[Rfam]
RNA: Small nucleolar RNA Z278
Organism: Papaver nudicaule
RNA sequence: GCCUAUGAUGAUGUUAUCCUAUUACUUGAGGUAUAGUGGAACUGAGACCCUGUUUACAGGGAGAACCCCUUGGCGAAGCUAUAUUUCAUAUGACAUUAGUGGAUCUAGCUGAGGC
Numbered sequence: 001g002c003c004u005a006u007g008a009u010g011a012u013g014u015u016a017u018c019c020u021a022u023u024a025c026u027u028g029a030g031g032u033a034u035a036g037u038g039g040a041a042c043u044g045a046g047a048c049c050c051u052g053u054u055u056a057c058a059g060g061g062a063g064a065a066c067c068c069c070u071u072g073g074c075g076a077a078g079c080u081a082u083a084u085u086u087c088a089u090a091u092g093a094c095a096u097u098a099g100u101g102g103a104u105c106u107a108g109c110u111g112a113g114g115c
Stems, first nucleotide, its partner, number of pairs: 001115003048061005